[Rfam]
RNA sequence: GUUCACAUCUUACCGGGCAGCAUUAGAUUUUUCAAAUACAUUUCUAAUACUGUCAGGUAAAGAUGUCGUC
Numbered sequence: 001g002u003u004c005a006c007a008u009c010u011u012a013c014c015g016g017g018c019a020g021c022a023u024u025a026g027a028u029u030u031u032u033c034a035a036a037u038a039c040a041u042u043u044c045u046a047a048u049a050c051u052g053u054c055a056g057g058u059a060a061a062g063a064u065g066u067c068g069u070c
Stems, first nucleotide, its partner, number of pairs: 003068001005066005010060005016054005022048006
This 70-nucleotide RNA from Bactrocera dorsalis belongs to the Rfam family "mir-8/mir-141/mir-200 microRNA precursor family". The family is grouped with related families in Rfam's "mir-8 microRNA precursor clan". Lineage of the source: Eukaryota > Eumetazoa > Cyclorrhapha > Dacini > Bactrocera dorsalis complex. Its family is annotated with miRNA-mediated post-transcriptional gene silencing and RISC complex in the Gene Ontology. The family's consensus secondary structure was predicted with RNAalifold.